[Rfam]
RNA sequence: GGGGCUGAUUAGGAUUCGACAGGAUCUUGGACGCUUUAGGUGCAUGCAGAGGUGCGGCUGGCCUCUUAAAAAAGCCGCAUUUAAAUAGUCGCAAACGACGAAAACUACGCACUAGCCGCUUAAUAACCGGUAUAGGCCCUUCCACCUCAGUCUCUUUCUACUAGCGGGGAUUCGGAAGGUCAUCUAAGUAGGAUAGCGAGGGAAACUUGUCUAAGGUUGAACCGCGAAACAGUAUUAGGCCAGCCUCAAGGAAAUCCUGUUUGUCGGAGUUCCAAGAGGUUAAAUAAAUGACAAACUAAGCAUGUAGUACCGACGGUAGACAUUUUCUGGACGCGGGUUCAAAUCCCGCCAGCUCCACCA
Numbered sequence: 001g002g003g004g005c006u007g008a009u010u011a012g013g014a015u016u017c018g019a020c021a022g023g024a025u026c027u028u029g030g031a032c033g034c035u036u037u038a039g040g041u042g043c044a045u046g047c048a049g050a051g052g053u054g055c056g057g058c059u060g061g062c063c064u065c066u067u068a069a070a071a072a073a074g075c076c077g078c079a080u081u082u083a084a085a086u087a088g089u090c091g092c093a094a095a096c097g098a099c100g101a102a103a104a105c106u107a108c109g110c111a112c113u114a115g116c117c118g119c120u121u122a123a124u125a126a127c128c129g130g131u132a133u134a135g136g137c138c139c140u141u142c143c144a145c146c147u148c149a150g151u152c153u154c155u156u157u158c159u160a161c162u163a164g165c166g167g168g169g170a171u172u173c174g175g176a177a178g179g180u181c182a183u184c185u186a187a188g189u190a191g192g193a194u195a196g197c198g199a200g201g202g203a204a205a206c207u208u209g210u211c212u213a214a215g216g217u218u219g220a221a222c223c224g225c226g227a228a229a230c231a232g233u234a235u236u237a238g239g240c241c242a243g244c245c246u247c248a249a250g251g252a253a254a255u256c257c258u259g260u261u262u263g264u265c266g267g268a269g270u271u272c273c274a275a276g277a278g279g280u281u282a283a284a285u286a287a288a289u290g291a292c293a294a295a296c297u298a299a300g301c302a303u304g305u306a307g308u309a310c311c312g313a314c315g316g317u318a319g320a321c322a323u324u325u326u327c328u329g330g331a332c333g334c335g336g337g338u339u340c341a342a343a344u345c346c347c348g349c350c351a352g353c354u355c356c357a358c359c360a
Stems, first nucleotide, its partner, number of pairs: 001356007020329005027322001033317003037313001039311003043304005048066005053079007112135003115131004138179006145169004153164001156193007196225003209241001211239002214236001243280005250273003255268003259296007333349005
Dot-bracket structure: (((((((............(((((..(.....(((.(.(((.((((([[[[[(((((((..]]]]]......)))))))................................(((((((.........)))).)))..[[[[[[.[[[[....[..(((((((.].]]]]....]]]]]].......)))))))..(((..........[.[[.[........)))..........].]].].[[[[[..[[[..[[[.(((((((]]]..]]]..]]]]].........)))))))...)))))....))).).)))....)..)))))...(((((.......))))))))))))....
RNA: transfer-messenger RNA